[Rfam]
RNA sequence: AUAUAAGCAUUGAUGGAAAUAGUAGCUUUUUUUAAGGGAAAUAAGAGACAGGUUGGUUGGUGAAAAAUCUGCCCAAAAAUUAAGUGAAUUACGAUUCUUAAGCUUCUAUAGGAAACUAUAGCGACUUCUACAUGAUACGUAGUAUAAUGAGGCAUCUAAAAAGAUGUAAAUUAAGGUGGUACCACGAGUUUUCUCGUCCUUUGG
Numbered sequence: 001a002u003a004u005a006a007g008c009a010u011u012g013a014u015g016g017a018a019a020u021a022g023u024a025g026c027u028u029u030u031u032u033u034a035a036g037g038g039a040a041a042u043a044a045g046a047g048a049c050a051g052g053u054u055g056g057u058u059g060g061u062g063a064a065a066a067a068u069c070u071g072c073c074c075a076a077a078a079a080u081u082a083a084g085u086g087a088a089u090u091a092c093g094a095u096u097c098u099u100a101a102g103c104u105u106c107u108a109u110a111g112g113a114a115a116c117u118a119u120a121g122c123g124a125c126u127u128c129u130a131c132a133u134g135a136u137a138c139g140u141a142g143u144a145u146a147a148u149g150a151g152g153c154a155u156c157u158a159a160a161a162a163g164a165u166g167u168a169a170a171u172u173a174a175g176g177u178g179g180u181a182c183c184a185c186g187a188g189u190u191u192u193c194u195c196g197u198c199c200u201u202u203g204g
Stems, first nucleotide, its partner, number of pairs: 007103002015098004025085004036074003049071006107120005122134002152167006173201004184197005